[Rfam]
RNA sequence: UUGCCCAUAUUAAGAUUUCUCAUUCAUAAUGUGGCCAAUUUAGGGGGGUAUAAUAAACCGCUCCAUAAAAUUCAAAGUAAGAUCUCUGUUUAUGCUUUGAAUCCUGUCUGGAGCAAUACUGUU
Number, nucleotide and partner (000 for none) at each position: 001u000002u050003g049004c048005c047006c046007a000008u044009a000010u043011u042012a000013a000014g000015a039016u038017u037018u000019c034020u000021c031022a000023u000024u000025c000026a000027u000028a000029a000030u000031g021032u000033g000034g019035c000036c000037a017038a016039u015040u000041u000042a011043g010044g008045g000046g006047g005048g004049u003050a002051u000052a000053a000054u000055a000056a000057a117058c000059c000060g000061c113062u112063c111064c110065a109066u000067a000068a000069a000070a000071u000072u100073c099074a098075a097076a096077g095078u094079a000080a090081g000082a089083u088084c000085u000086c000087u000088g083089u082090u080091u000092a000093u000094g078095c077096u076097u075098u074099g073100a072101a000102u000103c000104c000105u000106g000107u000108c000109u065110g064111g063112a062113g061114c000115a000116a000117u057118a000119c000120u000121g000122u000123u000
RNA: Small nucleolar RNA SNORA26
Organism: Leptobrachium leishanense